[Rfam]
RNA: MIR7504 microRNA precursor family
RNA sequence: AAUACGAGAAUGACGAAUCAAAUUUUUCUUUCUGAUUUUCAGGUUUUUCCUCCUGACAAAAUUCAAAUUCAACAAAAAAUGAUAAAAAUAAGGAGGAAAAAUCUAACUUGUCAUUCUCCUAUU
Numbered sequence: 001a002a003u004a005c006g007a008g009a010a011u012g013a014c015g016a017a018u019c020a021a022a023u024u025u026u027u028c029u030u031u032c033u034g035a036u037u038u039u040c041a042g043g044u045u046u047u048u049c050c051u052c053c054u055g056a057c058a059a060a061a062u063u064c065a066a067a068u069u070c071a072a073c074a075a076a077a078a079a080u081g082a083u084a085a086a087a088a089u090a091a092g093g094a095g096g097a098a099a100a101a102u103c104u105a106a107c108u109u110g111u112c113a114u115u116c117u118c119c120u121a122u123u
Base pairs, nucleotide, nucleotide: 001123002122003121004120006118007117008116009115010114011113012112013111014110015109016108018106020104022102023101024100025099026098027097029095030094031093032092033091035089036088037087038086039085041083045079046078047077048076